Background:
Rfam assigns this 134-nucleotide RNA to the family "U8 small nucleolar RNA". The family's consensus secondary structure is taken from published work. A reference for the family is Peculis et al. (2001), "The U8 snoRNA gene family: identification and characterization of distinct, functional U8 genes in Xenopus", Gene. It is annotated as a C/D-box small nucleolar RNA. Gene Ontology terms of the family: nucleolus and RNA processing.
RNA sequence: UCAUCAGGUGGGAUAAUCCUUACCUGUUCCUCGUUUUGGAGGGCAGAUAGAACAGGAUAAUUGGAGUUUGCAUGAUCCAUGAUUAAUGUCUCUGUGUAAUCAGGACUUGCAAACUCUGAUUGUUCAUAUCUGAU
Numbered sequence: 001u002c003a004u005c006a007g008g009u010g011g012g013a014u015a016a017u018c019c020u021u022a023c024c025u026g027u028u029c030c031u032c033g034u035u036u037u038g039g040a041g042g043g044c045a046g047a048u049a050g051a052a053c054a055g056g057a058u059a060a061u062u063g064g065a066g067u068u069u070g071c072a073u074g075a076u077c078c079a080u081g082a083u084u085a086a087u088g089u090c091u092c093u094g095u096g097u098a099a100u101c102a103g104g105a106c107u108u109g110c111a112a113a114c115u116c117u118g119a120u121u122g123u124u125c126a127u128a129u130c131u132g133a134u
Stems, first nucleotide, its partner, number of pairs: 024046003028043005074092002078088002080085001096123009